[Rfam]
RNA sequence: CCCGCGGCUAGACGGAAAGACCCCGUGAACCUUUACUAUAGCUUGGCACUGAACAUUGAGCCUACAUGUGUAGGAUAGGUGGGAGGCUUUGAAACUUGGACGCCAGUUCAGGUGGAGCCAUCCUUGAAAUACCACCCUUGUAUGUUUGAUGUUCUAACAUUGGCCCCUAAUCGGGGUUGUGGACAGUGCCUGGUGGGUAGUUUGACUGGGGCGGUCUCCUCCCAAAGAGUAACGGAGGAGCACGAAGGUUUGCUAAGUACGGUCGGACAUCGUACGGUUAGUGUAAUGGUAGAAGCAAGCUUAACUGCGAGACAGACACGUCGAGCAGGUACGAAAGUAGGUCAUAGUGAUCCGGUGGCUCUGUAUGGAAGGGCCAUCGCUCAACGGAUAAAAGGUACUCCGGGGAUAACAGGCUGAUACCGCCCAAGAGUUCAUAUCGACGGCGGUGUUUGGCACCUCGAUGUCGGCUCAUCACAUCCUGGGGCUGAAGUCGGUCCCAAGGGUAUGGCUGUUCGCCAUUUAAAGUGGUACGCGAGCUGGGUUUAGAACGUCGUGAGACAGUUCGGUCCCUAUCUGCCGUGGGCGUU
Numbered sequence: 001c002c003c004g005c006g007g008c009u010a011g012a013c014g015g016a017a018a019g020a021c022c023c024c025g026u027g028a029a030c031c032u033u034u035a036c037u038a039u040a041g042c043u044u045g046g047c048a049c050u051g052a053a054c055a056u057u058g059a060g061c062c063u064a065c066a067u068g069u070g071u072a073g074g075a076u077a078g079g080u081g082g083g084a085g086g087c088u089u090u091g092a093a094a095c096u097u098g099g100a101c102g103c104c105a106g107u108u109c110a111g112g113u114g115g116a117g118c119c120a121u122c123c124u125u126g127a128a129a130u131a132c133c134a135c136c137c138u139u140g141u142a143u144g145u146u147u148g149a150u151g152u153u154c155u156a157a158c159a160u161u162g163g164c165c166c167c168u169a170a171u172c173g174g175g176g177u178u179g180u181g182g183a184c185a186g187u188g189c190c191u192g193g194u195g196g197g198u199a200g201u202u203u204g205a206c207u208g209g210g211g212c213g214g215u216c217u218c219c220u221c222c223c224a225a226a227g228a229g230u231a232a233c234g235g236a237g238g239a240g241c242a243c244g245a246a247g248g249u250u251u252g253c254u255a256a257g258u259a260c261g262g263u264c265g266g267a268c269a270u271c272g273u274a275c276g277g278u279u280a281g282u283g284u285a286a287u288g289g290u291a292g293a294a295g296c297a298a299g300c301u302u303a304a305c306u307g308c309g310a311g312a313c314a315g316a317c318a319c320g321u322c323g324a325g326c327a328g329g330u331a332c333g334a335a336a337g338u339a340g341g342u343c344a345u346a347g348u349g350a351u352c353c354g355g356u357g358g359c360u361c362u363g364u365a366u367g368g369a370a371g372g373g374c375c376a377u378c379g380c381u382c383a384a385c386g387g388a389u390a391a392a393a394g395g396u397a398c399u400c401c402g403g404g405g406a407u408a409a410c411a412g413g414c415u416g417a418u419a420c421c422g423c424c425c426a427a428g429a430g431u432u433c434a435u436a437u438c439g440a441c442g443g444c445g446g447u448g449u450u451u452g453g454c455a456c457c458u459c460g461a462u463g464u465c466g467g468c469u470c471a472u473c474a475c476a477u478c479c480u481g482g483g484g485c486u487g488a489a490g491u492c493g494g495u496c497c498c499a500a501g502g503g504u505a506u507g508g509c510u511g512u513u514c515g516c517c518a519u520u521u522a523a524a525g526u527g528g529u530a531c532g533c534g535a536g537c538u539g540g541g542u543u544u545a546g547a548a549c550g551u552c553g554u555g556a557g558a559c560a561g562u563u564c565g566g567u568c569c570c571u572a573u574c575u576g577c578c579g580u581g582g583g584c585g586u587u
Stems, first nucleotide, its partner, number of pairs: 001583008010575003014570002022404004027400002029396005035201004042193002045190004051154011063142004068137001078136005085119003094113008158181003162178006204216004217239006240385001242342002248300006254280002257275006281290002305328004311322003330339003353379007361372002413454003417451001418448007428438002465540001466538004470532001471529005478503002481498006505519005546564004550559003
Rfam assigns this 587-nucleotide part of an RNA from Psychrosphaera ytuae to the family "Bacterial large subunit ribosomal RNA". The family's consensus secondary structure is taken from published work. NCBI's taxonomy places the organism under Bacteria, Pseudomonadati, Gammaproteobacteria, Pseudoalteromonadaceae, Psychrosphaera.